[Rfam]
RNA sequence: AUCGGCGCACAACGGCUUCCUGGCGUGCGUCCGGACAUAUCAAUGGAGCG
Numbered sequence: 001a002u003c004g005g006c007g008c009a010c011a012a013c014g015g016c017u018u019c020c021u022g023g024c025g026u027g028c029g030u031c032c033g034g035a036c037a038u039a040u041c042a043a044u045g046g047a048g049c050g
Base pairs, nucleotide, nucleotide: 004031005030006029007028008027009026010025013022014021015049016048017047019046020045
The family of this 50-nucleotide RNA sequence from Palleronia sediminis is "SAM/SAH riboswitch aptamer". The match comes from Rfam's covariance-model search (49 bits). For this family Rfam cites "The structure of the SAM/SAH-binding riboswitch" (Weickhmann et al., Nucleic Acids Res, 2019). Lineage of the source: Bacteria > Pseudomonadati > Alphaproteobacteria > Rhodobacterales > Palleronia.